[Rfam]
RNA: Small nucleolar RNA SNORA29
Organism: Neogale vison
RNA sequence: UUUCCCAUUUGACUGCCACAUUUUCUCCCAAUAAUAGAUUUUGUUGGCUAUGCUUGUGGGAUAGAUAAAAUUGCCAUGAUCUGAAGAGGGAGGAUUUAUUGUGUCCUCCUCCUAUAUGAAAUGGCCAAACAGAAAAUU
Dot-bracket structure: ...((((........(((..........................))).........))))............((((..............((((...............))))........)))).............